[Rfam]
RNA sequence: ACCUAGGGUGGAGGCGCUGUGAUUAAUAGUAUUUGUUUUUAGUUGGCAGACGUUUUAGAAAUAAAGAAAGGAAUUACAGCCGAAAAAUUAGUUUGGCGGAACUGAUUUUGGCUUUGUAUAAAAUAUGUGCAAAGCUGUCACUAAAAUACGUGUUUGCUGUAUUUUCAUUUAUUUC
Numbered sequence: 001a002c003c004u005a006g007g008g009u010g011g012a013g014g015c016g017c018u019g020u021g022a023u024u025a026a027u028a029g030u031a032u033u034u035g036u037u038u039u040u041a042g043u044u045g046g047c048a049g050a051c052g053u054u055u056u057a058g059a060a061a062u063a064a065a066g067a068a069a070g071g072a073a074u075u076a077c078a079g080c081c082g083a084a085a086a087a088u089u090a091g092u093u094u095g096g097c098g099g100a101a102c103u104g105a106u107u108u109u110g111g112c113u114u115u116g117u118a119u120a121a122a123a124u125a126u127g128u129g130c131a132a133a134g135c136u137g138u139c140a141c142u143a144a145a146a147u148a149c150g151u152g153u154u155u156g157c158u159g160u161a162u163u164u165u166c167a168u169u170u171a172u173u174u175c
Stems, first nucleotide, its partner, number of pairs: 016080009032065008084109011110136011143174002

Lysine riboswitch aptamer: a 175-nucleotide RNA from Clostridium luticellarii. The match comes from Rfam's covariance-model search (81 bits). Pairs were carried over by alignment from the consensus structure, which is taken from published work. Lineage of the source: Bacteria > Clostridia > Eubacteriales > Clostridiaceae > Clostridium.